[Rfam]
Shown here is a 185-nucleotide RNA sequence from Sorghum bicolor, a member of the family "Small nucleolar RNA Z112". The match comes from Rfam's covariance-model search (102 bits). The family's consensus secondary structure was predicted with PFOLD. On this family, see Liang et al., Nucleic Acids Res 2002: "A novel gene organization: intronic snoRNA gene clusters from Oryza sativa". Its Rfam clan is "SNORD49 clan". Gene Ontology terms of the family: nucleolus and RNA processing.
RNA sequence: GUCCCCAUGAGGAUUUCAAGACCUACCGAUAGGAAGUGCCGUUUAACAAUGUAAACAUCAGCUCUUCUUUUGCUGCAAGUGUCUCCUAUGAACGUAACCUCUGUGAUUUGAUUUGGAAUGGAGCUCCAUCUGUAAUAAUUGUUUAAUUCAGCUGUGGUGUGAUUUAAAUUGGAUCUCUGAGGGGU
Numbered sequence: 001g002u003c004c005c006c007a008u009g010a011g012g013a014u015u016u017c018a019a020g021a022c023c024u025a026c027c028g029a030u031a032g033g034a035a036g037u038g039c040c041g042u043u044u045a046a047c048a049a050u051g052u053a054a055a056c057a058u059c060a061g062c063u064c065u066u067c068u069u070u071u072g073c074u075g076c077a078a079g080u081g082u083c084u085c086c087u088a089u090g091a092a093c094g095u096a097a098c099c100u101c102u103g104u105g106a107u108u109u110g111a112u113u114u115g116g117a118a119u120g121g122a123g124c125u126c127c128a129u130c131u132g133u134a135a136u137a138a139u140u141g142u143u144u145a146a147u148u149c150a151g152c153u154g155u156g157g158u159g160u161g162a163u164u165u166a167a168a169u170u171g172g173a174u175c176u177c178u179g180a181g182g183g184g185u
Stems, first nucleotide, its partner, number of pairs: 001185005074134004079129003082122002084118001086116001090113002093110002096108002099105001